This 62-nucleotide RNA sequence from Colobus angolensis belongs to the Rfam family "Gag/pol translational readthrough site". Gene Ontology term of the family: viral translational readthrough. Rfam classes the family as a cis-regulatory element. The organism belongs to Colobus angolensis, within Eukaryota.
RNA sequence: UAGGGGGGACGGGGUUCGGACCCCCUCCCCGAACCCAGGGUAACUCUGCAAGUGGAGAGGUC
Numbered sequence: 001u002a003g004g005g006g007g008g009a010c011g012g013g014g015u016u017c018g019g020a021c022c023c024c025c026u027c028c029c030c031g032a033a034c035c036c037a038g039g040g041u042a043a044c045u046c047u048g049c050a051a052g053u054g055g056a057g058a059g060g061u062c
Stems, first nucleotide, its partner, number of pairs: 008041001010039001012036004016031001018029002022060002025057003
Dot-bracket structure: .......(.(.(((((.((..[[.[[[)).).))))..).).............]]].]]..